[Rfam]
RNA sequence: GCUAUCGAACGACCGGGUGCCACGCUGUGCUCUCUCGGGUAUUUGUGCGGAGUGAACACAGCUGGUGGUAUCUCAGUUGUUCCCUAGUU
Numbered sequence: 001g002c003u004a005u006c007g008a009a010c011g012a013c014c015g016g017g018u019g020c021c022a023c024g025c026u027g028u029g030c031u032c033u034c035u036c037g038g039g040u041a042u043u044u045g046u047g048c049g050g051a052g053u054g055a056a057c058a059c060a061g062c063u064g065g066u067g068g069u070a071u072c073u074c075a076g077u078u079g080u081u082c083c084c085u086a087g088u089u
Stems, first nucleotide, its partner, number of pairs: 008080001011077001015074001016072002019069002022066002025061003029057001031055002
RNA: mir-317 microRNA precursor family
Organism: Chrysodeixis includens